[Rfam]
RNA sequence: ACCUGCUGAUCAUGUUGACUUCAGCAACCCGGGCUUCGCUGACUAGCCUCCCCGAGAACACCAUCGACAACUGGACCGAGUUAAAGGCUCAGUU
Numbered sequence: 001a002c003c004u005g006c007u008g009a010u011c012a013u014g015u016u017g018a019c020u021u022c023a024g025c026a027a028c029c030c031g032g033g034c035u036u037c038g039c040u041g042a043c044u045a046g047c048c049u050c051c052c053c054g055a056g057a058a059c060a061c062c063a064u065c066g067a068c069a070a071c072u073g074g075a076c077c078g079a080g081u082u083a084a085a086g087g088c089u090c091a092g093u094u
Base pairs, nucleotide, nucleotide: 003092004091005090007087
RNA: Small nucleolar RNA Z256
Organism: Oryza punctata